[Rfam]
RNA sequence: ACGUUGCGAUGAUGCGGGAGGUUGCCGACACACCCGGCCCCUUUGCCAUAGGGAGCCUGUCGGGUUAUUCUCGCGGAGUAUGUCCGAUUACCAAAUUGGGCGA
Numbered sequence: 001a002c003g004u005u006g007c008g009a010u011g012a013u014g015c016g017g018g019a020g021g022u023u024g025c026c027g028a029c030a031c032a033c034c035c036g037g038c039c040c041c042u043u044u045g046c047c048a049u050a051g052g053g054a055g056c057c058u059g060u061c062g063g064g065u066u067a068u069u070c071u072c073g074c075g076g077a078g079u080a081u082g083u084c085c086g087a088u089u090a091c092c093a094a095a096u097u098g099g100g101c102g103a
Base pairs, nucleotide, nucleotide: 014074015073016072018070019069020068021066025063026062027061028060029059081102082101083100084099085098086097087096088095
Annotation:
A member of the RNA family "S10-Clostridia ribosomal protein leader" from Thermobacillus composti, 103 nucleotides long. The literature on the family includes a 2020 paper in BMC Microbiol by Eckert and Weinberg, "Discovery of 20 novel ribosomal leader candidates in bacteria and archaea". The match comes from Rfam's covariance-model search (42 bits). By type it is a cis-regulatory leader. NCBI's taxonomy places the organism under Bacteria, Bacillati, Paenibacillaceae, Thermobacillus, Thermobacillus composti.